[Rfam]
RNA sequence: ACGCCCCUGUCGGCAGCGCGCCAAGAGGGGCCGGGAAUCCCGGCGUCACCGCGUGCGCUGUCGGAUGGUCUUUUGAACCGAGGCGGCAUG
Numbered sequence: 001a002c003g004c005c006c007c008u009g010u011c012g013g014c015a016g017c018g019c020g021c022c023a024a025g026a027g028g029g030g031c032c033g034g035g036a037a038u039c040c041c042g043g044c045g046u047c048a049c050c051g052c053g054u055g056c057g058c059u060g061u062c063g064g065a066u067g068g069u070c071u072u073u074u075g076a077a078c079c080g081a082g083g084c085g086g087c088a089u090g
Stems, first nucleotide, its partner, number of pairs: 002085004010064004015059007027049001028046001030044005066080003

The record is a 90-nucleotide RNA sequence, which matches "dauA ncRNA motif" in Rfam. Rfam classes the family as a cis-regulatory element. Gene Ontology term of the family: regulation of gene expression.